[Rfam]
RNA sequence: GCGGCCGGGGCGGCGGGCGGUCAAGGAGUAAAGAACUCGGGGAAAGAACCCUCCCAACCAGCCAAACCUCUCGUACGUCACCCGCGGGGGUGAAUCGGGGCGAUCUGGCUGGCGCGUCGGCGGAACGGGCGGGCAGGCUCGGCCCGGAGAGCUACACAGACCGAACUUCAGACAAUCCGCAGACAUGCGACGGCCCCCGCCGGGACUAGCACUCCCGGACGAGGGCCUGACCACCAAGGAAGCAGGACCUUCCCU
Numbered sequence: 001g002c003g004g005c006c007g008g009g010g011c012g013g014c015g016g017g018c019g020g021u022c023a024a025g026g027a028g029u030a031a032a033g034a035a036c037u038c039g040g041g042g043a044a045a046g047a048a049c050c051c052u053c054c055c056a057a058c059c060a061g062c063c064a065a066a067c068c069u070c071u072c073g074u075a076c077g078u079c080a081c082c083c084g085c086g087g088g089g090g091u092g093a094a095u096c097g098g099g100g101c102g103a104u105c106u107g108g109c110u111g112g113c114g115c116g117u118c119g120g121c122g123g124a125a126c127g128g129g130c131g132g133g134c135a136g137g138c139u140c141g142g143c144c145c146g147g148a149g150a151g152c153u154a155c156a157c158a159g160a161c162c163g164a165a166c167u168u169c170a171g172a173c174a175a176u177c178c179g180c181a182g183a184c185a186u187g188c189g190a191c192g193g194c195c196c197c198c199g200c201c202g203g204g205a206c207u208a209g210c211a212c213u214c215c216c217g218g219a220c221g222a223g224g225g226c227c228u229g230a231c232c233a234c235c236a237a238g239g240a241a242g243c244a245g246g247a248c249c250u251u252c253c254c255u
Stems, first nucleotide, its partner, number of pairs: 007235002010232001017074003078093006109171004192227005198221002202216004238253005
Dot-bracket structure: ......((.(......(((....................................................)))...((((((....))))))...............((((.......................................................))))....................(((((.((..((((.......))))...)).)))))....).))..(((((......)))))..
Rfam assigns this 255-nucleotide RNA from Streptomyces ruber to the family "Streptomyces sRNA 4677". It scores 60 bits against the family's covariance model. Located in the intergenic region between anti-sigma factor SCO4677 gene and a putative regulatory protein gene SCO4676. scr4677 expression requires the SCO4677 activity and scr4677 sRNA itself seem to affect the levels of the SCO4676-associated transcripts. It is annotated as a small RNA. For this family Rfam cites "Complex intra-operonic dynamics mediated by a small RNA in Streptomyces coelicolor" (Hindra et al., PLoS One, 2014). NCBI's taxonomy places the organism under Bacteria, Bacillati, Actinomycetota, Streptomycetaceae, Streptomyces.